[Rfam]
RNA sequence: UAUAAAAAUAAAAAAACUACCUAUAUAAUUCUGAAAAUAAGGUUCAGAUGUUUCUACAAAAAAACCGUAAAUUUUUUUACUAUAGGUAAAUCAAAUUUAUAG
Numbered sequence: 001u002a003u004a005a006a007a008a009u010a011a012a013a014a015a016a017c018u019a020c021c022u023a024u025a026u027a028a029u030u031c032u033g034a035a036a037a038u039a040a041g042g043u044u045c046a047g048a049u050g051u052u053u054c055u056a057c058a059a060a061a062a063a064a065c066c067g068u069a070a071a072u073u074u075u076u077u078u079a080c081u082a083u084a085g086g087u088a089a090a091u092c093a094a095a096u097u098u099a100u101a102g
Stems, first nucleotide, its partner, number of pairs: 018088008030048006058078007

The family of this 102-nucleotide RNA from Clostridium thermobutyricum is "Purine riboswitch aptamer". Pairs were carried over by alignment from the consensus structure, which is taken from published work. The match comes from Rfam's covariance-model search (77 bits).